This 92-nucleotide RNA sequence from Salinibacillus xinjiangensis belongs to the Rfam family "Selenocysteine transfer RNA". Pairs were carried over by alignment from the consensus structure, which is taken from published work.

RNA sequence: GGGGUUGGUUACGGAGCUGGUGCCCGUCGCAGUCUUCAAAACUGUCCGAGAGGCAAGUUUGUCUCUGGUGGGUUCGAUUCCCACACAAUCCC
Numbered sequence: 001g002g003g004g005u006u007g008g009u010u011a012c013g014g015a016g017c018u019g020g021u022g023c024c025c026g027u028c029g030c031a032g033u034c035u036u037c038a039a040a041a042c043u044g045u046c047c048g049a050g051a052g053g054c055a056a057g058u059u060u061g062u063c064u065c066u067g068g069u070g071g072g073u074u075c076g077a078u079u080c081c082c083a084c085a086c087a088a089u090c091c092c
Stems, first nucleotide, its partner, number of pairs: 001092007008084001011027004016023002029045005049066005069083004